[Rfam]
Shown here is a 161-nucleotide sequence from Aneurinibacillus sp. XH2, a member of the family "Group II catalytic intron D1-D4-3". Group II introns are found in rRNA, tRNA and mRNA of organelles in fungi, plants and protists, and also in mRNA in bacteria. Pairs were carried over by alignment from the consensus structure. It scores 111 bits against the family's covariance model.

RNA sequence: CCGGCUCUGAAGGAAGCCGGCGGCAAACCUCCGGCCUGAGGAACACGAAUCUCAUAUAAGGCCAGCGUUCGGUGGAUGAGCCUGCAUAACAAGGCGAAGUCCAUACUGCCGAAGGCGAGCGAAGGUAAAUGAGGAAGGUAGAUGGAGGGGAAGAUGGCGCU
Numbered sequence: 001c002c003g004g005c006u007c008u009g010a011a012g013g014a015a016g017c018c019g020g021c022g023g024c025a026a027a028c029c030u031c032c033g034g035c036c037u038g039a040g041g042a043a044c045a046c047g048a049a050u051c052u053c054a055u056a057u058a059a060g061g062c063c064a065g066c067g068u069u070c071g072g073u074g075g076a077u078g079a080g081c082c083u084g085c086a087u088a089a090c091a092a093g094g095c096g097a098a099g100u101c102c103a104u105a106c107u108g109c110c111g112a113a114g115g116c117g118a119g120c121g122a123a124g125g126u127a128a129a130u131g132a133g134g135a136a137g138g139u140a141g142a143u144g145g146a147g148g149g150g151a152a153g154a155u156g157g158c159g160c161u
Base pairs, nucleotide, nucleotide: 016161018159019158024153028148029147030146031145032144033143034139035138036137037136050134051133052132053131054130055129061126062125063124066121067120068119069118070117071116074102075101076100077099080095081094082093083092